[Rfam]
RNA sequence: ACCAUUACUGGUAGGAGACAUACCAUGAUCAGGAGGGUGGCUUUCCCACGGUGAGGCUUACCCAUUGAAUCCAGGAUGUGCUGACCACAAAGAUUUCCCCAAAUGUGCAAAGCUCAGCUGUAUAACUUGUGAUAGUAGGGGAUUGCAUUUGUGCUUUACCCUG
Numbered sequence: 001a002c003c004a005u006u007a008c009u010g011g012u013a014g015g016a017g018a019c020a021u022a023c024c025a026u027g028a029u030c031a032g033g034a035g036g037g038u039g040g041c042u043u044u045c046c047c048a049c050g051g052u053g054a055g056g057c058u059u060a061c062c063c064a065u066u067g068a069a070u071c072c073a074g075g076a077u078g079u080g081c082u083g084a085c086c087a088c089a090a091a092g093a094u095u096u097c098c099c100c101a102a103a104u105g106u107g108c109a110a111a112g113c114u115c116a117g118c119u120g121u122a123u124a125a126c127u128u129g130u131g132a133u134a135g136u137a138g139g140g141g142a143u144u145g146c147a148u149u150u151g152u153g154c155u156u157u158a159c160c161c162u163g
Stems, first nucleotide, its partner, number of pairs: 011121004015047001017045002020042001023040004051086001053085001055082003059078002062075002092115002094112001095110002099107001137162004142157001145154003
RNA: U1 spliceosomal RNA
Organism: Panthera leo